[Rfam]
RNA sequence: CGGGGACAUGCAGACUCCCCAUUAGACGGUGUUCGUCCAAGCUCUGC
Dot-bracket structure: .(((((...[[[[[.)))))....(((((...))))).....]]]]]
Numbered sequence: 001c002g003g004g005g006a007c008a009u010g011c012a013g014a015c016u017c018c019c020c021a022u023u024a025g026a027c028g029g030u031g032u033u034c035g036u037c038c039a040a041g042c043u044c045u046g047c
Stems, first nucleotide, its partner, number of pairs: 002020005010047005025037005